The family of this 83-nucleotide RNA from Arabis alpina is "small nucleolar RNA snoR114". Pairs were carried over by alignment from the consensus structure, which was predicted with RNAalifold. A search with the family's covariance model found it, with a score of 62 bits. Lineage of the source: Eukaryota > Streptophyta > Gunneridae > rosids > Arabis. The family's RNA type in Rfam is C/D-box small nucleolar RNA. Gene Ontology terms of the family: RNA processing and nucleolus.

RNA sequence: GAGCUGUGAUGAUUAAAGCGCAUAUUGAUGAUUGGUUUCAUCACUAUCGUCUUUACAGACGAUACCAGUGCGCAUCUGAGCUC
Numbered sequence: 001g002a003g004c005u006g007u008g009a010u011g012a013u014u015a016a017a018g019c020g021c022a023u024a025u026u027g028a029u030g031a032u033u034g035g036u037u038u039c040a041u042c043a044c045u046a047u048c049g050u051c052u053u054u055a056c057a058g059a060c061g062a063u064a065c066c067a068g069u070g071c072g073c074a075u076c077u078g079a080g081c082u083c
Stems, first nucleotide, its partner, number of pairs: 001083004